[Rfam]
RNA sequence: AUGCUACGCCGCAUGGGGGAUGGUUCGGCUAGAGUGCUGAAGAAGGUCGUGUCAAGCUGCGAUAAGCGUCGGGUAGGUGCAAGAAGCCUAUGAUCCGAUGAUCACCGAAUGGGACUUCCUAUUCUUCGGAAUGUUCAGUAAUGAACGGGAACGCGGGGGAUUGAAGCAUCUUAGUACCCGCAGGAAAAGAAAUCAAAACGAGAUGCCGUUAGUAAAGGCGAUCGAACACGGUAUAGGGCAAACUGAAUCCCUUAUAGAAAUAUAAGGGAGAUGUGGUGUUGUAGGCUCUUUUAUUCCUAAAGCGAAAGAUCCAAAAUUGACUGGAAAGUCAUGCCAUAGAGGGUGAUAGCCCCUUAGGAGAAGGUCGAUAUGGAAAUUUUAGAAGUUCUUGAGUAACGUGCGUUGGAUAUCGCGCGUGAAUCUGGGAGACAUUCACUUCCAACCCUAAAUACAACUCUAGUCCGAUAGCGCAGUAGUAGUGUGAACGAAAACUGAAAAGUACCCUUAACGGGAGGUUAAAAGACCUGAAACCAUGCGGUUAUAGAUUUAAAUAGCAUCAAAGGAAAGAAACCAUUAAUUGGUGGACCAGUGUUAUUUUGU
Numbered sequence: 001a002u003g004c005u006a007c008g009c010c011g012c013a014u015g016g017g018g019g020a021u022g023g024u025u026c027g028g029c030u031a032g033a034g035u036g037c038u039g040a041a042g043a044a045g046g047u048c049g050u051g052u053c054a055a056g057c058u059g060c061g062a063u064a065a066g067c068g069u070c071g072g073g074u075a076g077g078u079g080c081a082a083g084a085a086g087c088c089u090a091u092g093a094u095c096c097g098a099u100g101a102u103c104a105c106c107g108a109a110u111g112g113g114a115c116u117u118c119c120u121a122u123u124c125u126u127c128g129g130a131a132u133g134u135u136c137a138g139u140a141a142u143g144a145a146c147g148g149g150a151a152c153g154c155g156g157g158g159g160a161u162u163g164a165a166g167c168a169u170c171u172u173a174g175u176a177c178c179c180g181c182a183g184g185a186a187a188a189g190a191a192a193u194c195a196a197a198a199c200g201a202g203a204u205g206c207c208g209u210u211a212g213u214a215a216a217g218g219c220g221a222u223c224g225a226a227c228a229c230g231g232u233a234u235a236g237g238g239c240a241a242a243c244u245g246a247a248u249c250c251c252u253u254a255u256a257g258a259a260a261u262a263u264a265a266g267g268g269a270g271a272u273g274u275g276g277u278g279u280u281g282u283a284g285g286c287u288c289u290u291u292u293a294u295u296c297c298u299a300a301a302g303c304g305a306a307a308g309a310u311c312c313a314a315a316a317u318u319g320a321c322u323g324g325a326a327a328g329u330c331a332u333g334c335c336a337u338a339g340a341g342g343g344u345g346a347u348a349g350c351c352c353c354u355u356a357g358g359a360g361a362a363g364g365u366c367g368a369u370a371u372g373g374a375a376a377u378u379u380u381a382g383a384a385g386u387u388c389u390u391g392a393g394u395a396a397c398g399u400g401c402g403u404u405g406g407a408u409a410u411c412g413c414g415c416g417u418g419a420a421u422c423u424g425g426g427a428g429a430c431a432u433u434c435a436c437u438u439c440c441a442a443c444c445c446u447a448a449a450u451a452c453a454a455c456u457c458u459a460g461u462c463c464g465a466u467a468g469c470g471c472a473g474u475a476g477u478a479g480u481g482u483g484a485a486c487g488a489a490a491a492c493u494g495a496a497a498a499g500u501a502c503c504c505u506u507a508a509c510g511g512g513a514g515g516u517u518a519a520a521a522g523a524c525c526u527g528a529a530a531c532c533a534u535g536c537g538g539u540u541a542u543a544g545a546u547u548u549a550a551a552u553a554g555c556a557u558c559a560a561a562g563g564a565a566a567g568a569a570a571c572c573a574u575u576a577a578u579u580g581g582u583g584g585a586c587c588a589g590u591g592u593u594a595u596u597u598u599g600u
Base pairs, nucleotide, nucleotide: 008539009538010537011536012535013534014533015532016531022525023492024491027463028462029460030459031458032457033456034455035453036452045106046105047104048061049060050059067100068099069098070097071096072095076088077087078086111120112119113118134145135144136143137142152183153181154180155179156178157177163170164169193201194200205232206231207230208229209228216222235446236445237444238443243276244275245274253264254263255262256261287383288382289381294375295374296373297372310359311358312357316332318331319330320329321328335339341353342352343351396417397416398415399414400413401412402411424440425439426438427437428436479486480485549597550596551595552594553593554592555591556590557589562587563586570582571581572580573579
RNA: Archaeal large subunit ribosomal RNA, nucleotides 10 to 609
Organism: Candidatus Methanoplasma termitum